[Rfam]
RNA sequence: AAACCGUCACAACGGCUUCCUGGCGUGGCGGAUAAACCCGAAUGGAGCG
Numbered sequence: 001a002a003a004c005c006g007u008c009a010c011a012a013c014g015g016c017u018u019c020c021u022g023g024c025g026u027g028g029c030g031g032a033u034a035a036a037c038c039c040g041a042a043u044g045g046a047g048c049g
Stems, first nucleotide, its partner, number of pairs: 004031007013022002015048003019045002